[Rfam]
Rfam assigns this 104-nucleotide RNA to the family "MIR396 microRNA precursor family".
RNA sequence: GGUCAUGCUUUUCCACAGCUUUCUUGAACUUCUUUCGUAUCUUAAAUCUGUUUUCAAGAUUAAAAGUCCUAGAAGCUCAAGAAAGCUGUGGGAGAAUAUGGCAA
Numbered sequence: 001g002g003u004c005a006u007g008c009u010u011u012u013c014c015a016c017a018g019c020u021u022u023c024u025u026g027a028a029c030u031u032c033u034u035u036c037g038u039a040u041c042u043u044a045a046a047u048c049u050g051u052u053u054u055c056a057a058g059a060u061u062a063a064a065a066g067u068c069c070u071a072g073a074a075g076c077u078c079a080a081g082a083a084a085g086c087u088g089u090g091g092g093a094g095a096a097u098a099u100g101g102c103a104a
Stems, first nucleotide, its partner, number of pairs: 003101005013091003017087006024080004029075005
Notes: On this family, see Xie et al., Plant Physiol 2005: "Expression of Arabidopsis MIRNA genes".